[Rfam]
RNA sequence: GUGACAGAAGAGAGUGAGCACACGGCCGGGCGUGACGGCACCGGCGCGGAUGUGCCGUCGCGGCCGCGUGCUCACUGCUCUUUCUGUCAU
Numbered sequence: 001g002u003g004a005c006a007g008a009a010g011a012g013a014g015u016g017a018g019c020a021c022a023c024g025g026c027c028g029g030g031c032g033u034g035a036c037g038g039c040a041c042c043g044g045c046g047c048g049g050a051u052g053u054g055c056c057g058u059c060g061c062g063g064c065c066g067c068g069u070g071c072u073c074a075c076u077g078c079u080c081u082u083u084c085u086g087u088c089a090u
Stems, first nucleotide, its partner, number of pairs: 001090009010080003013076009023066006
Shown here is a 90-nucleotide RNA from Panicum miliaceum, a member of the family "mir-156 microRNA precursor family". It scores 62 bits against the family's covariance model. The family has 10 seed sequences and 1,401 matches in Rfam 15.1. Rfam's curators write: This family represents the plant microRNA (miRNA) precursor mir-156. The literature on the family includes a 2002 paper in Genes Dev by Reinhart et al., "MicroRNAs in plants".